Overview:
The family of this 109-nucleotide RNA from Miscanthus lutarioriparius is "MIR5565 microRNA precursor family". Rfam links the family to the GO terms RISC complex and miRNA-mediated post-transcriptional gene silencing. The organism belongs to Miscanthus, within Eukaryota. A search with the family's covariance model found it, with a score of 100 bits.
RNA sequence: GUUAUCGGAUUUACCUUAAUCCACGUGUGUUGGGGUAGAUUAGAGUGGAAUUUAGUUGAAGUUCCACUCCAAUCCACCACAACACAUGUGGAUUGAUGUGAAUCUAAUU
Numbered sequence: 001g002u003u004a005u006c007g008g009a010u011u012u013a014c015c016u017u018a019a020u021c022c023a024c025g026u027g028u029g030u031u032g033g034g035g036u037a038g039a040u041u042a043g044a045g046u047g048g049a050a051u052u053u054a055g056u057u058g059a060a061g062u063u064c065c066a067c068u069c070c071a072a073u074c075c076a077c078c079a080c081a082a083c084a085c086a087u088g089u090g091g092a093u094u095g096a097u098g099u100g101a102a103u104c105u106a107a108u109u
Stems, first nucleotide, its partner, number of pairs: 004108002007105008016096017035077002038074004043069001045067003